RNA: Small nucleolar RNA Z13/snr52
RNA sequence: CAUGCGCCUAUGAUGAAGCCAAUACGGAUGUAAAUGAGCUUUGCUCGCUGUCCGAGAGCGCAAAACCCCAUGUGGAUCCCUCCGUUGCCUUCCUUCUGACUCUUCGG
Numbered sequence: 001c002a003u004g005c006g007c008c009u010a011u012g013a014u015g016a017a018g019c020c021a022a023u024a025c026g027g028a029u030g031u032a033a034a035u036g037a038g039c040u041u042u043g044c045u046c047g048c049u050g051u052c053c054g055a056g057a058g059c060g061c062a063a064a065a066c067c068c069c070a071u072g073u074g075g076a077u078c079c080c081u082c083c084g085u086u087g088c089c090u091u092c093c094u095u096c097u098g099a100c101u102c103u104u105c106g107g
Base pairs, nucleotide, nucleotide: 003106004105025084026083027082028081